This 271-nucleotide RNA from Modestobacter versicolor belongs to the Rfam family "Actinobacteria sRNA Ms_IGR-5". On this family, see Li et al., RNA 2013: "Identification of small RNAs in Mycobacterium smegmatis using heterologous Hfq".
[Rfam]
RNA sequence: ACACGAGAGAGGAGGUGGUCCCGAAGUUGAUGACUUACAGGACACGUGAGGUGGCUGUCCGCUAGCCGCCGUCCAGAUGGGCCGCCCGUUCACGACCUGUGGAAGACCCGCAGCGACUGAGCGACGGCAUCCCGCCCGUCCGUCGAUGGCGGCGAGCGAGAACCGGACAGUCACCCGACCCCCGGGCUGCCGACAUUGUCCAGUCGGCCCGCGUGCUGCUCCCCCACUACGGUGGGGACAGCGCCGCGGAGCAGCCCGGGGGUUGUCCGUU
Numbered sequence: 001a002c003a004c005g006a007g008a009g010a011g012g013a014g015g016u017g018g019u020c021c022c023g024a025a026g027u028u029g030a031u032g033a034c035u036u037a038c039a040g041g042a043c044a045c046g047u048g049a050g051g052u053g054g055c056u057g058u059c060c061g062c063u064a065g066c067c068g069c070c071g072u073c074c075a076g077a078u079g080g081g082c083c084g085c086c087c088g089u090u091c092a093c094g095a096c097c098u099g100u101g102g103a104a105g106a107c108c109c110g111c112a113g114c115g116a117c118u119g120a121g122c123g124a125c126g127g128c129a130u131c132c133c134g135c136c137c138g139u140c141c142g143u144c145g146a147u148g149g150c151g152g153c154g155a156g157c158g159a160g161a162a163c164c165g166g167a168c169a170g171u172c173a174c175c176c177g178a179c180c181c182c183c184g185g186g187c188u189g190c191c192g193a194c195a196u197u198g199u200c201c202a203g204u205c206g207g208c209c210c211g212c213g214u215g216c217u218g219c220u221c222c223c224c225c226a227c228u229a230c231g232g233u234g235g236g237g238a239c240a241g242c243g244c245c246g247c248g249g250a251g252c253a254g255c256c257c258g259g260g261g262g263u264u265g266u267c268c269g270u271u
Stems, first nucleotide, its partner, number of pairs: 014059006060158004065153002068150004073145001176265013189208006
Annotation: The match comes from Rfam's covariance-model search (85 bits).